[Rfam]
RNA: mir-221 microRNA precursor family
RNA sequence: CCCCUCGGUUGCUCAGUAAUCCGUGUAGGUCCUGUCCUGUCCUGUCAGCAUCUACAUCUGGCUACUGGGUCUCUAAUGGACUUC
Numbered sequence: 001c002c003c004c005u006c007g008g009u010u011g012c013u014c015a016g017u018a019a020u021c022c023g024u025g026u027a028g029g030u031c032c033u034g035u036c037c038u039g040u041c042c043u044g045u046c047a048g049c050a051u052c053u054a055c056a057u058c059u060g061g062c063u064a065c066u067g068g069g070u071c072u073c074u075a076a077u078g079g080a081c082u083u084c
Base pairs, nucleotide, nucleotide: 013068014067015066016065017064018063020061021060023057024056025055026054027053028052033050034049035048